Shown here is a 460-nucleotide part of an RNA from Oryza brachyantha, a member of the family "Eukaryotic large subunit ribosomal RNA".

[Rfam]
RNA sequence: GGUAGUAGCAAAUACUCUGGAGAGUCCUUGGAGGGCUGAUGUGGAGAAGGGUUCCGCGACAACAGUGCUUGCUCGCGAGUUAGCCGGUCCUAAGCCAACAGAGAAAUCUCGACCAACGCAGGGCCUUUGGGUCCCGUUGAUGGCGAAAGGGCAGCCUGUAAAUAUUCAGGAGCCCCGGUCGGAACCGUAUCUCAGGUCCCAUUACCUGUCACGGUGACGUGAAUUGCCCCAAAGACGCCCUCGGGCGCCACCAGGAGAGUUUUCUUUUCUCUUGAAGCUCGCGUACUCCAUGGAAUUCCUUAACGGAGAGAUAUGGAGCGGCUAUGCGAAGAGCGCCGCACUUGCUGCGGUGUUGGUGGUGGCUCCUGGGACCUUGAAAAUUUGGGUGAGGGCCACGAGUGCCUCCGACCGGGAACGUACCGUCCGCAUCAGGACUCCGAGGUCAAAAGCCUCUAGUCAA
Numbered sequence: 001g002g003u004a005g006u007a008g009c010a011a012a013u014a015c016u017c018u019g020g021a022g023a024g025u026c027c028u029u030g031g032a033g034g035g036c037u038g039a040u041g042u043g044g045a046g047a048a049g050g051g052u053u054c055c056g057c058g059a060c061a062a063c064a065g066u067g068c069u070u071g072c073u074c075g076c077g078a079g080u081u082a083g084c085c086g087g088u089c090c091u092a093a094g095c096c097a098a099c100a101g102a103g104a105a106a107u108c109u110c111g112a113c114c115a116a117c118g119c120a121g122g123g124c125c126u127u128u129g130g131g132u133c134c135c136g137u138u139g140a141u142g143g144c145g146a147a148a149g150g151g152c153a154g155c156c157u158g159u160a161a162a163u164a165u166u167c168a169g170g171a172g173c174c175c176c177g178g179u180c181g182g183a184a185c186c187g188u189a190u191c192u193c194a195g196g197u198c199c200c201a202u203u204a205c206c207u208g209u210c211a212c213g214g215u216g217a218c219g220u221g222a223a224u225u226g227c228c229c230c231a232a233a234g235a236c237g238c239c240c241u242c243g244g245g246c247g248c249c250a251c252c253a254g255g256a257g258a259g260u261u262u263u264c265u266u267u268u269c270u271c272u273u274g275a276a277g278c279u280c281g282c283g284u285a286c287u288c289c290a291u292g293g294a295a296u297u298c299c300u301u302a303a304c305g306g307a308g309a310g311a312u313a314u315g316g317a318g319c320g321g322c323u324a325u326g327c328g329a330a331g332a333g334c335g336c337c338g339c340a341c342u343u344g345c346u347g348c349g350g351u352g353u354u355g356g357u358g359g360u361g362g363c364u365c366c367u368g369g370g371a372c373c374u375u376g377a378a379a380a381u382u383u384g385g386g387u388g389a390g391g392g393c394c395a396c397g398a399g400u401g402c403c404u405c406c407g408a409c410c411g412g413g414a415a416c417g418u419a420c421c422g423u424c425c426g427c428a429u430c431a432g433g434a435c436u437c438c439g440a441g442g443u444c445a446a447a448a449g450c451c452u453c454u455a456g457u458c459a460a
Stems, first nucleotide, its partner, number of pairs: 015033006034458004043438004049421002055077005063071002085417002089150002094144002100109003119136001121134001155170004174413004201404001205399001210221004228386006238370003243365004248361001250357003253273006277327002281323001287317006296308004334352007424433002440452004

The sequence is in the family's curated seed alignment.